[Rfam]
RNA sequence: CCCGCCGAGGGGCGUUGCGAUCCGCCUUUUAGGAGGCGGACCAGGCUCGGCGGGCUCGGGGCGCCCUGCGUCCCGGAGACGACGCAACGGCGCCCGUUCCGA
Numbered sequence: 001c002c003c004g005c006c007g008a009g010g011g012g013c014g015u016u017g018c019g020a021u022c023c024g025c026c027u028u029u030u031a032g033g034a035g036g037c038g039g040a041c042c043a044g045g046c047u048c049g050g051c052g053g054g055c056u057c058g059g060g061g062c063g064c065c066c067u068g069c070g071u072c073c074c075g076g077a078g079a080c081g082a083c084g085c086a087a088c089g090g091c092g093c094c095c096g097u098u099c100c101g102a
Stems, first nucleotide, its partner, number of pairs: 002053007021040006
A member of the RNA family "SAH (S-adenosyl-L-homocysteine) riboswitch aptamer" from Solimonas marina, 102 nucleotides long. The family has 52 seed sequences and 1,354 matches in Rfam 15.1. The organism belongs to Solimonas, within Bacteria. The match comes from Rfam's covariance-model search (55 bits). The family's consensus secondary structure is taken from published work. The literature on the family includes a 2008 paper in Mol Cell by Wang et al., "Riboswitches that sense S-adenosylhomocysteine and activate genes involved in coenzyme recycling".